[Rfam]
RNA sequence: AAGAUUGAAGAUGAUGAUCUUUUUGGCUACAUCCUGAUAGAAUCGAUGCGGAUUACAACCUAUUUGUCUCAUCCAUGAUUAUCAAGGAUAAUCUCACCUUGAGUGAUUUGUACGCCCAGCUUCUUGACUUUGAAG
Numbered sequence: 001a002a003g004a005u006u007g008a009a010g011a012u013g014a015u016g017a018u019c020u021u022u023u024u025g026g027c028u029a030c031a032u033c034c035u036g037a038u039a040g041a042a043u044c045g046a047u048g049c050g051g052a053u054u055a056c057a058a059c060c061u062a063u064u065u066g067u068c069u070c071a072u073c074c075a076u077g078a079u080u081a082u083c084a085a086g087g088a089u090a091a092u093c094u095c096a097c098c099u100u101g102a103g104u105g106a107u108u109u110g111u112a113c114g115c116c117c118a119g120c121u122u123c124u125u126g127a128c129u130u131u132g133a134a135g
Stems, first nucleotide, its partner, number of pairs: 005133004082102006